[Rfam]
Shown here is a 504-nucleotide part of an RNA from Pseudonosema cristatellae, a member of the family "Microsporidia small subunit ribosomal RNA". Pairs were carried over by alignment from the consensus structure, which is taken from published work. The family is grouped with related families in Rfam's "SSU clan". Lineage of the source: Eukaryota > Opisthokonta > Microsporidia > Pseudonosematidae > Pseudonosema. Gene Ontology terms of the family: ribosome and structural constituent of ribosome.
RNA sequence: CACCAGGUUGAUUCUGCCUGACGUAUGCGCUUGUCUUGAAGAUUUAGCCAUGCAAGCUAGCGAAGCCUUAUGGUGGAGCGGCGGACAGCUCAGUAAUACAGUUAUUAUUUACUCGUAGUAUGUAUACGGAUAACCAUGGUAAGCUAUGGCUAAUACGUGAACAGGUUAUUGCAUAGAUGAAACAGCGAUAACUGAGAGAGCAAUCGACUACGACUAAGUUUCUGGCCUAUCAGCUAGAUGGUAAGGUAAUGGCUUACCAUGGCUAUAACGGGUAACGGGAAAUCAGUGUUUGAUUCCGGAGAGGGAGCCUGAGAAAUAGCUCCCACGUCCAAGGACGGCAGCAGGCGCGAAACUUACCCAAUUCCUUAGCGGGAGAGGUAGUGAAGAGACAUGAAGUUCUACUUAGAGACUGUACGGUAAAAUAGUACAGGAUCUACUGGAGGGCAAGUCUGGUGCCAGCAGCCGCGGUAAUUCCAGCUCCAGUAGCGCAUAUAAUAGUUGCUG
Number, nucleotide and partner (000 for none) at each position: 001c000002a000003c000004c020005a019006g018007g017008u016009u000010g000011a000012u000013u000014c000015u000016g008017c007018c006019u005020g004021a000022c000023g493024u492025a491026u490027g489028c488029g487030c486031u485032u000033g390034u389035c388036u387037u386038g000039a000040a382041g348042a000043u000044u000045u000046a000047g346048c345049c344050a000051u343052g342053c341054a000055a000056g082057c081058u000059a000060g079061c078062g000063a000064a000065g074066c073067c000068u000069u000070a000071u000072g000073g066074u065075g000076g000077a000078g061079c060080g000081g057082c056083g000084g000085a000086c000087a000088g000089c301090u300091c299092a000093g000094u000095a000096a000097u000098a000099c224100a223101g222102u000103u000104a219105u218106u000107a000108u217109u216110u000111a000112c000113u213114c212115g211116u210117a209118g208119u207120a000121u000122g000123u000124a000125u000126a158127c157128g156129g000130a000131u000132a000133a000134c149135c148136a147137u146138g145139g144140u000141a000142a000143g000144c139145u138146a137147u136148g135149g134150c000151u000152a000153a000154u000155a000156c128157g127158u126159g000160a000161a000162c000163a000164g000165g000166u000167u000168a000169u000170u000171g000172c000173a000174u000175a000176g000177a000178u000179g000180a000181a000182a000183c000184a000185g000186c000187g000188a000189u000190a000191a000192c000193u000194g000195a000196g000197a000198g000199a000200g000201c000202a000203a000204u000205c000206g000207a119208c118209u117210a116211c115212g114213a113214c000215u000216a109217a108218g105219u104220u000221u000222c101223u100224g099225g000226c272227c271228u270229a000230u000231c000232a000233g263234c262235u261236a000237g000238a260239u259240g258241g257242u256243a255244a254245g253246g000247u000248a000249a000250u000251g000252g000253c245254u244255u243256a242257c241258c240259a239260u238261g235262g234263c233264u000265a000266u000267a000268a000269c000270g228271g227272g226273u000274a000275a000276c298277g297278g296279g295280a291281a290282a289283u288284c000285a000286g000287u000288g283289u282290u281291u280292g000293a000294u000295u279296c278297c277298g276299g091300a090301g089302a000303g324304g323305g322306a321307g320308c319309c000310u000311g000312a000313g000314a000315a000316a000317u000318a000319g308320c307321u306322c305323c304324c303325a000326c337327g336328u335329c334330c000331a000332a000333g000334g329335a328336c327337g326338g000339c000340a000341g053342c052343a051344g049345g048346c047347g000348c041349g000350a000351a000352a000353c000354u380355u000356a379357c378358c377359c000360a000361a000362u375363u374364c373365c372366u371367u000368a000369g000370c000371g366372g365373g364374a363375g362376a000377g358378g357379u356380a354381g000382u040383g000384a000385a000386g037387a036388g035389a034390c033391a000392u000393g000394a000395a000396g000397u000398u000399c000400u000401a000402c000403u000404u000405a000406g000407a000408g000409a000410c430411u429412g428413u427414a426415c425416g000417g000418u000419a000420a000421a000422a000423u000424a000425g415426u414427a413428c412429a411430g410431g000432a000433u000434c000435u000436a000437c483438u482439g481440g480441a479442g478443g000444g000445c000446a000447a000448g000449u000450c477451u476452g475453g474454u000455g000456c000457c000458a000459g466460c465461a000462g000463c000464c000465g460466c459467g000468g000469u000470a000471a000472u000473u000474c453475c452476a451477g450478c442479u441480c440481c439482a438483g437484u000485a031486g030487c029488g028489c027490a026491u025492a024493u023494a000495a000496u000497a000498g000499u000500u000501g000502c000503u000504g000